[Rfam]
RNA sequence: AGACGUUCUCAGGGCGGGGUGAAAUUCUCCACCGGCGGUAUUGGCGGAUUUCUCCGCCUCAGCCCGCGAGCGCCUUCCGGAUUUCGGUUCGGAAGGGACAAGCAGAUCCGGUGAGACUCCGGAGCCGACGGUUAGAGUCCGGAUGGAAGAGAACGCAG
Number, nucleotide and partner (000 for none) at each position: 001a000002g000003a000004c155005g154006u153007u152008c151009u150010c149011a000012g000013g000014g000015c000016g000017g029018g028019g027020u000021g000022a000023a000024a000025u000026u000027c019028u018029c017030c000031a138032c137033c127034g126035g067036c066037g065038g064039u000040a000041u000042u000043g000044g000045c000046g000047g000048a000049u000050u000051u000052c000053u000054c000055c000056g000057c000058c000059u000060c000061a000062g125063c124064c038065c037066g036067c035068g000069a000070g103071c102072g000073c000074c000075u000076u000077c000078c000079g000080g000081a000082u000083u000084u000085c000086g000087g000088u000089u000090c000091g000092g000093a000094a000095g000096g000097g000098a000099c000100a000101a000102g071103c070104a000105g000106a000107u123108c122109c121110g120111g119112u000113g000114a000115g000116a000117c000118u000119c111120c110121g109122g108123a107124g063125c062126c034127g033128a000129c141130g140131g139132u000133u000134a000135g000136a000137g032138u031139c131140c130141g129142g000143a000144u000145g000146g000147a000148a000149g010150a009151g008152a007153a006154c005155g004156c000157a000158g000
RNA: FMN riboswitch aptamer (RFN element)